[Rfam]
RNA sequence: AGAUGAAACCAGUUGUGCUGACCGUGGUCGGCAACACUCCCAGGCAGUCGAGAUCAUCAGGGCUGCGAUCAGCAACAGGCUGAUUGAUCAUUUUCUAUCAAACAAUUUUUUAACCCUUUGGGGCAAAGCCCCGAUGGGUGC
Number, nucleotide and partner (000 for none) at each position: 001a000002g000003a000004u000005g000006a000007a000008a000009c000010c000011a038012g037013u036014u033015g000016u000017g032018c031019u030020g029021a028022c027023c000024g000025u000026g000027g022028u021029c020030g019031g018032c017033a014034a000035c000036a013037c012038u011039c000040c000041c000042a000043g000044g066045c065046a064047g063048u062049c061050g000051a000052g089053a088054u087055c086056a000057u000058c000059a000060g000061g049062g048063c047064u046065g045066c044067g085068a084069u083070c082071a081072g080073c079074a000075a000076c000077a000078g000079g073080c072081u071082g070083a069084u068085u067086g055087a054088u053089c052090a000091u000092u000093u000094u000095c000096u000097a000098u000099c000100a000101a000102a000103c000104a000105a000106u000107u000108u000109u000110u000111u140112a139113a000114c000115c000116c000117u000118u134119u133120g132121g131122g130123g129124c128125a000126a000127a000128g124129c123130c122131c121132c120133g119134a118135u000136g000137g000138g000139u112140g111141c000